[Rfam]
Annotation:
Shown here is a 69-nucleotide RNA, a member of the family "RAGATH-18 RNA". The base pairs follow the family's consensus structure, which is taken from published work. Actinobacteria, Firmicutes, Fusobacteria, Thermotogae (1 example). Rfam classes the family as a small RNA. It is one of the family's seed sequences.

RNA sequence: ACUGUGGAGCGUGAAACCAGCCUGAGUAGUCGGCUUAGUAAGACGAAAGGGAACGCUAUGAAGCAGUAA
Numbered sequence: 001a002c003u004g005u006g007g008a009g010c011g012u013g014a015a016a017c018c019a020g021c022c023u024g025a026g027u028a029g030u031c032g033g034c035u036u037a038g039u040a041a042g043a044c045g046a047a048a049g050g051g052a053a054c055g056c057u058a059u060g061a062a063g064c065a066g067u068a069a
Stems, first nucleotide, its partner, number of pairs: 001067005009056004021051003029044003035041002